The record is a 147-nucleotide sequence from Pseudooceanicola pacificus, which matches "Ruegeria cis2 sRNA" in Rfam.
The match comes from Rfam's covariance-model search (105 bits).
The source organism's lineage runs through Bacteria, Pseudomonadota, Alphaproteobacteria, Paracoccaceae and Pseudooceanicola.
[Rfam]
RNA sequence: AUAGCGCGGGAAGUAGUUGAUGAAGACAAACCCCCGGCACUGGUCGAUGGCGUGGAACAGCGGGUUCCAGUCGAACAUCGCCAGCAUGUAGCCGGGCAGGGAAUUGGCCAGGAACAUCUUGCCCGACGCAACCAUGUUCGCCCGCUG
Numbered sequence: 001a002u003a004g005c006g007c008g009g010g011a012a013g014u015a016g017u018u019g020a021u022g023a024a025g026a027c028a029a030a031c032c033c034c035c036g037g038c039a040c041u042g043g044u045c046g047a048u049g050g051c052g053u054g055g056a057a058c059a060g061c062g063g064g065u066u067c068c069a070g071u072c073g074a075a076c077a078u079c080g081c082c083a084g085c086a087u088g089u090a091g092c093c094g095g096g097c098a099g100g101g102a103a104u105u106g107g108c109c110a111g112g113a114a115c116a117u118c119u120u121g122c123c124c125g126a127c128g129c130a131a132c133c134a135u136g137u138u139c140g141c142c143c144g145c146u147g
Stems, first nucleotide, its partner, number of pairs: 002024001007019003032050002035046004058147005064076004080141002083138006092128001095124002097121005104113002